[Rfam]
RNA: c-di-GMP-I riboswitch aptamer
Organism: Bacillus salacetis
RNA sequence: AAUUGAAAAAGGCAAACUUAUCGAAAGGUAAGGACGCAAAGCUGCGGGUCUAAGGUAACUAAACUAUGACAGCCGGGCUGCCAAA
Numbered sequence: 001a002a003u004u005g006a007a008a009a010a011g012g013c014a015a016a017c018u019u020a021u022c023g024a025a026a027g028g029u030a031a032g033g034a035c036g037c038a039a040a041g042c043u044g045c046g047g048g049u050c051u052a053a054g055g056u057a058a059c060u061a062a063a064c065u066a067u068g069a070c071a072g073c074c075g076g077g078c079u080g081c082c083a084a085a
Stems, first nucleotide, its partner, number of pairs: 012037002017032006040079004045075003048070003055064002